[Rfam]
RNA: RAGATH-18 RNA
RNA sequence: CCUCUGGAGUAUCACACCAACGAAAGUAGUUUCUUGAAAAAGUACAAAAUCGGAUACUGAGAAAGAGGAA
Numbered sequence: 001c002c003u004c005u006g007g008a009g010u011a012u013c014a015c016a017c018c019a020a021c022g023a024a025a026g027u028a029g030u031u032u033c034u035u036g037a038a039a040a041a042g043u044a045c046a047a048a049a050u051c052g053g054a055u056a057c058u059g060a061g062a063a064a065g066a067g068g069a070a
Base pairs, nucleotide, nucleotide: 001068002067003066004065005064009057010056011055012054013053021052022051023050029045030044034042035041